[Rfam]
RNA sequence: CAGUACGGGGAAUGAUGUAUUACCACAAGGCGCUGAAGAUGCUCGCAUAUCUUGAUUCGGCUUCCUCCAUCGAGCUG
Number, nucleotide and partner (000 for none) at each position: 001c077002a076003g075004u074005a000006c072007g071008g070009g000010g000011a000012a000013u000014g000015a000016u000017g000018u000019a000020u000021u000022a000023c000024c000025a000026c000027a000028a000029g000030g000031c000032g000033c000034u000035g000036a000037a000038g000039a000040u000041g000042c000043u000044c000045g000046c000047a000048u000049a000050u000051c000052u000053u000054g000055a000056u000057u000058c000059g000060g000061c000062u000063u000064c000065c000066u000067c000068c000069a000070u008071c007072g006073a000074g004075c003076u002077g001
Small nucleolar RNA J33: a 77-nucleotide RNA sequence from Ceratopteris richardii. Taxonomically the source falls in Ceratopteris (Eukaryota, Viridiplantae, Streptophyta, Embryophyta). Gene Ontology terms of the family: nucleolus and RNA processing. The family's RNA type in Rfam is C/D-box small nucleolar RNA. The family has 5 seed sequences and 831 matches in Rfam 15.1.